[Rfam]
RNA sequence: GCAGGUGAAUGCAACGUCAAGCGAUGGGCGUUGCGCUCCAUAUUGUCUUAUUUCUUACGUUUAGAAUUACUGCAUAGCACAAUUGAUUCAUACCCUGCCGGUCUUUCAGACCGGCUUUU
Numbered sequence: 001g002c003a004g005g006u007g008a009a010u011g012c013a014a015c016g017u018c019a020a021g022c023g024a025u026g027g028g029c030g031u032u033g034c035g036c037u038c039c040a041u042a043u044u045g046u047c048u049u050a051u052u053u054c055u056u057a058c059g060u061u062u063a064g065a066a067u068u069a070c071u072g073c074a075u076a077g078c079a080c081a082a083u084u085g086a087u088u089c090a091u092a093c094c095c096u097g098c099c100g101g102u103c104u105u106u107c108a109g110a111c112c113g114g115c116u117u118u119u
Stems, first nucleotide, its partner, number of pairs: 001046004007038002010035009064089006071079003097115008
The record is a 119-nucleotide RNA from Chimaeribacter arupi, which matches "Fumarate/nitrate reductase regulator sRNA" in Rfam.
For this family Rfam cites "Translational regulation of gene expression by an anaerobically induced small non-coding RNA in Escherichia coli" (Boysen et al., J Biol Chem, 2010).